[Rfam]
RNA sequence: UCAAUAGAAAUUACUAUAUGUCGUAUAAUAUUGGGGAUAUGGCCCAAAAGUUUCUACCGAGCUGCCGUAAAUAGCUUGACUACGAGAUAUUUGGUUAGAAUC
Numbered sequence: 001u002c003a004a005u006a007g008a009a010a011u012u013a014c015u016a017u018a019u020g021u022c023g024u025a026u027a028a029u030a031u032u033g034g035g036g037a038u039a040u041g042g043c044c045c046a047a048a049a050g051u052u053u054c055u056a057c058c059g060a061g062c063u064g065c066c067g068u069a070a071a072u073a074g075c076u077u078g079a080c081u082a083c084g085a086g087a088u089a090u091u092u093g094g095u096u097a098g099a100a101u102c
Stems, first nucleotide, its partner, number of pairs: 018088002021085005029049001031047005058078007
Description:
This 102-nucleotide RNA sequence from Priestia koreensis belongs to the Rfam family "Purine riboswitch aptamer". The family's consensus secondary structure is taken from published work. The match comes from Rfam's covariance-model search (89 bits).